[Rfam]
RNA sequence: GGUACCUUUAAUUCAGUCCAGAGAGGCUGACAAGGACAGCGGAUUUUUACAAUACACGAGGAGUAGGUGUGCUUUACCCUAUGCUGGUGUAUUGUAUAAAAAAAGAGGCUAAUUGUCAGGUUAACUGGUAAUUAGCCUCUUUUUUU
Numbered sequence: 001g002g003u004a005c006c007u008u009u010a011a012u013u014c015a016g017u018c019c020a021g022a023g024a025g026g027c028u029g030a031c032a033a034g035g036a037c038a039g040c041g042g043a044u045u046u047u048u049a050c051a052a053u054a055c056a057c058g059a060g061g062a063g064u065a066g067g068u069g070u071g072c073u074u075u076a077c078c079c080u081a082u083g084c085u086g087g088u089g090u091a092u093u094g095u096a097u098a099a100a101a102a103a104a105g106a107g108g109c110u111a112a113u114u115g116u117c118a119g120g121u122u123a124a125c126u127g128g129u130a131a132u133u134a135g136c137c138u139c140u141u142u143u144u145u146u
Base pairs, nucleotide, nucleotide: 005035006034007033008032013030014029015028016027017026018025044100045099046098048096049095050094051093052092053091054090055089056088057087103141104140105139106138107137108136109135110134111133112132113131114130115129116128117127118126119125